[Rfam]
RNA sequence: GAUAAAACAGGUGAAAAACCUGUUCGCCGUAAACCCAAGGUUUCCCGGGGAAGGUUAAUCCGCCCGGGGUUAGUCGAUCCUAAGUCGAGGCCGGAAAGGCGUAGACGAUGGACAGCUGGUUAAAUAUUCCAGCACCAUUGGUAUGACGUUAUCAGUGCAUUGGUGCGCAGUAAGCUAGGUGAUCGCGCGAUUGGAUGUUGCGCGUCCAAGCCCGUAGUUGCAUCCGCAAGGGUGUGAUGAGAGGUGUUAGGGAGCUCAAUCUUCGGAAAGAGCGAACUCGCUGAUGCUACACUGCCGAGAAAAGCCAAUGUUACGAGUCAUGUCGAUGACCGUACCGUAAUCGGACACACGUGGGUGGGGUGAAAAUCCUAAGGCGCU
Numbered sequence: 001g002a003u004a005a006a007a008c009a010g011g012u013g014a015a016a017a018a019c020c021u022g023u024u025c026g027c028c029g030u031a032a033a034c035c036c037a038a039g040g041u042u043u044c045c046c047g048g049g050g051a052a053g054g055u056u057a058a059u060c061c062g063c064c065c066g067g068g069g070u071u072a073g074u075c076g077a078u079c080c081u082a083a084g085u086c087g088a089g090g091c092c093g094g095a096a097a098g099g100c101g102u103a104g105a106c107g108a109u110g111g112a113c114a115g116c117u118g119g120u121u122a123a124a125u126a127u128u129c130c131a132g133c134a135c136c137a138u139u140g141g142u143a144u145g146a147c148g149u150u151a152u153c154a155g156u157g158c159a160u161u162g163g164u165g166c167g168c169a170g171u172a173a174g175c176u177a178g179g180u181g182a183u184c185g186c187g188c189g190a191u192u193g194g195a196u197g198u199u200g201c202g203c204g205u206c207c208a209a210g211c212c213c214g215u216a217g218u219u220g221c222a223u224c225c226g227c228a229a230g231g232g233u234g235u236g237a238u239g240a241g242a243g244g245u246g247u248u249a250g251g252g253a254g255c256u257c258a259a260u261c262u263u264c265g266g267a268a269a270g271a272g273c274g275a276a277c278u279c280g281c282u283g284a285u286g287c288u289a290c291a292c293u294g295c296c297g298a299g300a301a302a303a304g305c306c307a308a309u310g311u312u313a314c315g316a317g318u319c320a321u322g323u324c325g326a327u328g329a330c331c332g333u334a335c336c337g338u339a340a341u342c343g344g345a346c347a348c349a350c351g352u353g354g355g356u357g358g359g360g361u362g363a364a365a366a367u368c369c370u371a372a373g374g375c376g377c378u
Stems, first nucleotide, its partner, number of pairs: 006024006025376004033356004039336002044068006053061002075332002078329001079111002084106003088102001090100003115133005136328011155314002159309006167295004173288003178282005184204005206250001210245003217238003221234002224232002254273004342351002358370003